[Rfam]
RNA sequence: AGCUGAUGCACAUGGCGGAUUUCCUCCCAGUGCCGCCGCAGCAGCUGUUCCCCUCUGGAGGUUUAAAUUACCUUCACAUCUAAAGGGCCCGAGUUUUCUCGUGGCCCUCUUUU
Numbered sequence: 001a002g003c004u005g006a007u008g009c010a011c012a013u014g015g016c017g018g019a020u021u022u023c024c025u026c027c028c029a030g031u032g033c034c035g036c037c038g039c040a041g042c043a044g045c046u047g048u049u050c051c052c053c054u055c056u057g058g059a060g061g062u063u064u065a066a067a068u069u070a071c072c073u074u075c076a077c078a079u080c081u082a083a084a085g086g087g088c089c090c091g092a093g094u095u096u097u098c099u100c101g102u103g104g105c106c107c108u109c110u111u112u113u
Base pairs, nucleotide, nucleotide: 001046002045003044004043005042007040008039009038015036016035017034018033056076057075058074059073060072061071062070084108085107086106087105088104089103090101091100092099093098
RNA: Alphaproteobacterial ar15